[Rfam]
Nucleotides: 078
Base pairs, nucleotide, nucleotide: 001078002077003076005074
Number, partner (000 for none) and nucleotide at each position: 001078a002077g003076c004000c005074a006000a007000u008000g009000a010000g011000g012000c013000a014000g015000c016000u017000u018000u019000a020000c021000c022000a023000u024000c025000u026000g027000a028000a029000a030000c031000u032000g033000u034000g035000c036000u037000g038000u039000u040000g041000a042000c043000a044000a045000u046000u047000c048000u049000u050000c051000g052000g053000a054000u055000g056000g057000u058000c059000u060000u061000c062000a063000a064000a065000g066000u067000u068000c069000u070000c071000u072000g073000a074005u075000u076003g077002c078001u

Rfam assigns this 78-nucleotide RNA sequence from Sorghum bicolor to the family "Small nucleolar RNA R160". A search with the family's covariance model found it, with a score of 54 bits. The base pairs follow the family's consensus structure. Rfam's curators write: snoR160 is a C/D box small nucleolar RNA, which acts as a methylation guide for 25S ribosomal RNA in plants. snoR160 has been alternatively named snoZ270 in rice.